The record is a 79-nucleotide sequence from Sulfurovum sp. AR, which matches "c-di-GMP-I riboswitch aptamer" in Rfam.
The organism belongs to Sulfurovum, within Bacteria.
Its family is annotated with cyclic-di-GMP binding in the Gene Ontology.
The family's consensus secondary structure is taken from published work.

[Rfam]
RNA sequence: AAUGUUAAAAGCUAAACUUGUUGUGAAGCAAGGACAGAAAGUCAUGGGUCUUUAGUGCAAAGAUCGCCAGACCGCACAU
Numbered sequence: 001a002a003u004g005u006u007a008a009a010a011g012c013u014a015a016a017c018u019u020g021u022u023g024u025g026a027a028g029c030a031a032g033g034a035c036a037g038a039a040a041g042u043c044a045u046g047g048g049u050c051u052u053u054a055g056u057g058c059a060a061a062g063a064u065c066g067c068c069a070g071a072c073c074g075c076a077c078a079u
Stems, first nucleotide, its partner, number of pairs: 012037002017032006041072003045069003048064003
A search with the family's covariance model found it, with a score of 51 bits.